[Rfam]
RNA sequence: AGAGCCGGCCCGCCGAGUCUCCGCAAGCGGAGAGCCGGGGACCCACCCUCCCGAAGUCCCCGGGGUGAAUCCGUGGCGCGCCCGCGCCCGGUAGGGCGCUCUCCCGGCCCGAACCCGUCAGCUAACCCGGUAGGCGGCCGAGGAGAGGAGCC
Numbered sequence: 001a002g003a004g005c006c007g008g009c010c011c012g013c014c015g016a017g018u019c020u021c022c023g024c025a026a027g028c029g030g031a032g033a034g035c036c037g038g039g040g041a042c043c044c045a046c047c048c049u050c051c052c053g054a055a056g057u058c059c060c061c062g063g064g065g066u067g068a069a070u071c072c073g074u075g076g077c078g079c080g081c082c083c084g085c086g087c088c089c090g091g092u093a094g095g096g097c098g099c100u101c102u103c104c105c106g107g108c109c110c111g112a113a114c115c116c117g118u119c120a121g122c123u124a125a126c127c128c129g130g131u132a133g134g135c136g137g138c139c140g141a142g143g144a145g146a147g148g149a150g151c152c
Stems, first nucleotide, its partner, number of pairs: 011136004018033005034131006044062001063116003071091003094110004

About this RNA
The family of this 152-nucleotide sequence from Thiemannella venezuelensis is "c-di-AMP riboswitch aptamer (ydaO/yuaA leader)".